The record is a 137-nucleotide sequence from Cavia porcellus, which matches "Small nucleolar RNA SNORA17" in Rfam. Pairs were carried over by alignment from the consensus structure, which was predicted with RNAalifold. The source organism's lineage runs through Eukaryota, Eumetazoa, Vertebrata, Gnathostomata and Cavia.

[Rfam]
RNA sequence: ACUCCUUUCACAAACAUUCUCCAAGGGACCACCUUGUCUCUUGGAUGUCAGUGUUGCUGUUGGAGAGAGCAUGACACCCCAAGUGUCCACCCUGACCUGUCAUGUGGCCUUCAGUACUGGUCACUGGGGGUUUCCUU
Numbered sequence: 001a002c003u004c005c006u007u008u009c010a011c012a013a014a015c016a017u018u019c020u021c022c023a024a025g026g027g028a029c030c031a032c033c034u035u036g037u038c039u040c041u042u043g044g045a046u047g048u049c050a051g052u053g054u055u056g057c058u059g060u061u062g063g064a065g066a067g068a069g070c071a072u073g074a075c076a077c078c079c080c081a082a083g084u085g086u087c088c089a090c091c092c093u094g095a096c097c098u099g100u101c102a103u104g105u106g107g108c109c110u111u112c113a114g115u116a117c118u119g120g121u122c123a124c125u126g127g128g129g130g131u132u133u134c135c136u137u
Base pairs, nucleotide, nucleotide: 002065003064004063005062007059009053010052011051014048015047020045021044022043024041025040026039027038028037029036073134076131077130078129079128080126081125087120088119089118092114093113094112095110096107097106
Dot-bracket structure: .((((.(.(((..((....(((.((((((......)))))).))).))..))).....)..)))).......(..((((((.....(((..((((((........))..).)))...)))....)).))))..)...

By type it is an H/ACA-box small nucleolar RNA. About the family: snoRNA ACA 17 belongs to the H/ACA family of snoRNAs and is predicted to guide pseudouridylation of the 28S rRNA at positions U4659 and U4598. It shares the same host gene together with ACA43. NB This family has a high threshold value to exclude a large number of closely related sequences that do not appear to have conserved H and ACA boxes, and may be pseudogenes.